[Rfam]
RNA sequence: CGCUCGUCCAAGGGGAGUUCCGGCAAGGAACUGAGAGGCCGACGGCUCAAGAAGCGCGCGGCGACCCUACGAACCUGAUCCAGUUGACACUGGCGUAGGGAUGGAGUGAGCCGCUUCC
Numbered sequence: 001c002g003c004u005c006g007u008c009c010a011a012g013g014g015g016a017g018u019u020c021c022g023g024c025a026a027g028g029a030a031c032u033g034a035g036a037g038g039c040c041g042a043c044g045g046c047u048c049a050a051g052a053a054g055c056g057c058g059c060g061g062c063g064a065c066c067c068u069a070c071g072a073a074c075c076u077g078a079u080c081c082a083g084u085u086g087a088c089a090c091u092g093g094c095g096u097a098g099g100g101a102u103g104g105a106g107u108g109a110g111c112c113g114c115u116u117c118c
Base pairs, nucleotide, nucleotide: 007105008104009103010102011068012067013066014065017031018030019029020028021027038062039061040060041059074099075098076097077096080093081092082091083090
Annotation: This 118-nucleotide RNA from Aurantimonas marianensis belongs to the Rfam family "TPP riboswitch aptamer (THI element)". The source organism's lineage runs through Bacteria, Pseudomonadati, Alphaproteobacteria, Aurantimonadaceae and Aurantimonas. A search with the family's covariance model found it, with a score of 64 bits.